[Rfam]
RNA: PreQ1-III (pre queuosine) riboswitch aptamer
RNA sequence: GAGCAACUUAGGAUUUUAGGCUCCCCGGUGCGUCUCGAACCGCGCCGGGCCAAACCCACAGGGGCUGGCGGUCCUGUGCGGUCAAAAUCUUUCCGCUGGAG
Numbered sequence: 001g002a003g004c005a006a007c008u009u010a011g012g013a014u015u016u017u018a019g020g021c022u023c024c025c026c027g028g029u030g031c032g033u034c035u036c037g038a039a040c041c042g043c044g045c046c047g048g049g050c051c052a053a054a055c056c057c058a059c060a061g062g063g064g065c066u067g068g069c070g071g072u073c074c075u076g077u078g079c080g081g082u083c084a085a086a087a088u089c090u091u092u093c094c095g096c097u098g099g100a101g
Base pairs, nucleotide, nucleotide: 001023002022003021004020011090012089013088014087015086016085024049025048026047027046028045029044030043031042032041054082055081056080057078058077059076060075061074062073063072